[Rfam]
RNA: Small nucleolar RNA snoR74
Organism: Hibiscus syriacus
RNA sequence: UAAAAGAAAGGUUCUUGUUGCCUUUUGUGAAUGAGGUUCUUUUAAAAUUCAGGCAAAUUUUCUUUCAUUGUUAUUGGGUGGACCUCUAGACUUUCUUGGUGAAUGAAAUGUUUGAAGGUUCAGUAAAUGGUCACAUCUUC
Numbered sequence: 001u002a003a004a005a006g007a008a009a010g011g012u013u014c015u016u017g018u019u020g021c022c023u024u025u026u027g028u029g030a031a032u033g034a035g036g037u038u039c040u041u042u043u044a045a046a047a048u049u050c051a052g053g054c055a056a057a058u059u060u061u062c063u064u065u066c067a068u069u070g071u072u073a074u075u076g077g078g079u080g081g082a083c084c085u086c087u088a089g090a091c092u093u094u095c096u097u098g099g100u101g102a103a104u105g106a107a108a109u110g111u112u113u114g115a116a117g118g119u120u121c122a123g124u125a126a127a128u129g130g131u132c133a134c135a136u137c138u139u140c
Base pairs, nucleotide, nucleotide: 005049006048011038014035015034016033017032065133067131068130069129070128071127072126079122080121081120082119083118084117085116